Source information
A member of the RNA family "Plastid-psbA-1 3UTR RNA" from Macadamia integrifolia, 112 nucleotides long. Plastid psbA-1 is a non-coding RNA (ncRNA) present in plastids. It was identified in inverted repeat sequences in the 3 prime untranslate region (3UTR) of photosystem II quinone-binding protein (psbA). Taxonomically the source falls in Macadamia (Eukaryota, Streptophytina, Euphyllophyta, Proteales). Pairs were carried over by alignment from the consensus structure, which was predicted with LocARNA. The family's RNA type in Rfam is cis-regulatory element.

[Rfam]
RNA sequence: GUUGAAGCUCCAUCCAUAAAUGGAUAAGACUUAGAUCUUAGUGUAUAUGAGUUGUUGAAGGAGCAAUACCGCAUUUCUUGUUUUAUCAAGAGGGUUGGUAUUGCUCCUUCAU
Numbered sequence: 001g002u003u004g005a006a007g008c009u010c011c012a013u014c015c016a017u018a019a020a021u022g023g024a025u026a027a028g029a030c031u032u033a034g035a036u037c038u039u040a041g042u043g044u045a046u047a048u049g050a051g052u053u054g055u056u057g058a059a060g061g062a063g064c065a066a067u068a069c070c071g072c073a074u075u076u077c078u079u080g081u082u083u084u085a086u087c088a089a090g091a092g093g094g095u096u097g098g099u100a101u102u103g104c105u106c107c108u109u110c111a112u
Stems, first nucleotide, its partner, number of pairs: 009024005059108011071096001075092005
Dot-bracket structure: ........(((((......)))))..................................(((((((((((.(...(((((........)))))...).)))))))))))....